Description:
A member of the RNA family "U11 spliceosomal RNA" from Odocoileus virginianus, 133 nucleotides long. The organism belongs to Odocoileus virginianus, within Eukaryota. Its Rfam clan is "U1 clan". Rfam links the family to the GO terms mRNA 5'-splice site recognition, U11 snRNP and pre-mRNA 5'-splice site binding. By type it is a spliceosomal small nuclear RNA. It scores 110 bits against the family's covariance model. Pairs were carried over by alignment from the consensus structure, which is taken from published work.

[Rfam]
RNA sequence: AAAAAGGGCUUCUGUCGUGAGUGGCACACGUAGGGCAGCUCGUUUGCGCUACGUGCAGAAUCGACUUCGAGAUAUUUUGGAAGCAUAAUUUUUGCUAGUGGGGCAGCUGGUGAUCGUUGGUCCUGGUGCCCCC
Numbered sequence: 001a002a003a004a005a006g007g008g009c010u011u012c013u014g015u016c017g018u019g020a021g022u023g024g025c026a027c028a029c030g031u032a033g034g035g036c037a038g039c040u041c042g043u044u045u046g047c048g049c050u051a052c053g054u055g056c057a058g059a060a061u062c063g064a065c066u067u068c069g070a071g072a073u074a075u076u077u078u079g080g081a082a083g084c085a086u087a088a089u090u091u092u093u094g095c096u097a098g099u100g101g102g103g104c105a106g107c108u109g110g111u112g113a114u115c116g117u118u119g120g121u122c123c124u125g126g127u128g129c130c131c132c133c
Stems, first nucleotide, its partner, number of pairs: 008084005013026005027055007035047004056079006101131004106127005112122004